[Rfam]
RNA sequence: UGGGGAUCGGGUCUUCUGAGUCCGCAGCACUCAGGCUACGUGUGCCUCCGCAGCAGGUGCAGGCCCAGCAGUCCCUA
Numbered sequence: 001u002g003g004g005g006a007u008c009g010g011g012u013c014u015u016c017u018g019a020g021u022c023c024g025c026a027g028c029a030c031u032c033a034g035g036c037u038a039c040g041u042g043u044g045c046c047u048c049c050g051c052a053g054c055a056g057g058u059g060c061a062g063g064c065c066c067a068g069c070a071g072u073c074c075c076u077a
Stems, first nucleotide, its partner, number of pairs: 001077007009066005016034006043059005